Rfam assigns this 44-nucleotide sequence from Zizania palustris to the family "Guanidine-II riboswitch aptamer (mini-ykkC)". The organism belongs to Zizania, within Eukaryota. Simpler in structure and has fewer highly conserved nucleotide positions than the ykkC-yxkD leader.
RNA sequence: UCCGGAGGACGGCCUCCGGGCUUGGCUCUCGGAGGACGGCCUCC
Dot-bracket structure: ((((((((....))))))))..........(((((....)))))